[Rfam]
RNA: c-di-AMP riboswitch aptamer (ydaO/yuaA leader)
RNA sequence: GAGUUCGGUUCGCCACAAGGCGGCCGGAGCCGGGGACCCACCUUUCCUCACCUCCCGCGAGGCGGGGAAGUACCACCGGGGUGAAUCGGGCCGUGACCCCCCGUGCGGACCGUAGGGCAAAACUUCCUUCCCCUCAGCCGUCAGCGAUCUUCCAGCCCUGACGUCCGCGUGGACAGCCCGAACCCGACAGCUAACCCGGUAGGCGGUCCACGGAAGGAGU
Dot-bracket structure: ...(((((((...........)))))))((((((....(......................................)(((.....(((....................)))..((((.........................................................))))...))).........))))))....................
Numbered sequence: 001g002a003g004u005u006c007g008g009u010u011c012g013c014c015a016c017a018a019g020g021c022g023g024c025c026g027g028a029g030c031c032g033g034g035g036a037c038c039c040a041c042c043u044u045u046c047c048u049c050a051c052c053u054c055c056c057g058c059g060a061g062g063c064g065g066g067g068a069a070g071u072a073c074c075a076c077c078g079g080g081g082u083g084a085a086u087c088g089g090g091c092c093g094u095g096a097c098c099c100c101c102c103g104u105g106c107g108g109a110c111c112g113u114a115g116g117g118c119a120a121a122a123c124u125u126c127c128u129u130c131c132c133c134u135c136a137g138c139c140g141u142c143a144g145c146g147a148u149c150u151u152c153c154a155g156c157c158c159u160g161a162c163g164u165c166c167g168c169g170u171g172g173a174c175a176g177c178c179c180g181a182a183c184c185c186g187a188c189a190g191c192u193a194a195c196c197c198g199g200u201a202g203g204c205g206g207u208c209c210a211c212g213g214a215a216g217g218a219g220u
Stems, first nucleotide, its partner, number of pairs: 004028007029200006039078001079185003087112003115179004